This 121-nucleotide RNA sequence from Pseudobacter ginsenosidimutans belongs to the Rfam family "SAM riboswitch aptamer (S box leader)". The organism belongs to Pseudobacter, within Bacteria. A search with the family's covariance model found it, with a score of 71 bits. Rfam links the family to the GO term regulation of gene expression.
[Rfam]
RNA sequence: CUCUUAUCAAGAAAGGCAGAGGGAAAUGGCCCGAUGAAGCCUUGACAACCUAUUCUUUACGACAGCAAUGCCGGAAAGAAAAAGGUGCCAAUACCACCGUUUAACAACGGACUGAUAAGUC
Numbered sequence: 001c002u003c004u005u006a007u008c009a010a011g012a013a014a015g016g017c018a019g020a021g022g023g024a025a026a027u028g029g030c031c032c033g034a035u036g037a038a039g040c041c042u043u044g045a046c047a048a049c050c051u052a053u054u055c056u057u058u059a060c061g062a063c064a065g066c067a068a069u070g071c072c073g074g075a076a077a078g079a080a081a082a083a084g085g086u087g088c089c090a091a092u093a094c095c096a097c098c099g100u101u102u103a104a105c106a107a108c109g110g111a112c113u114g115a116u117a118a119g120u121c
Stems, first nucleotide, its partner, number of pairs: 003119006013043005021032003027096003044089001046087002049085002051081001053079002093113001097110005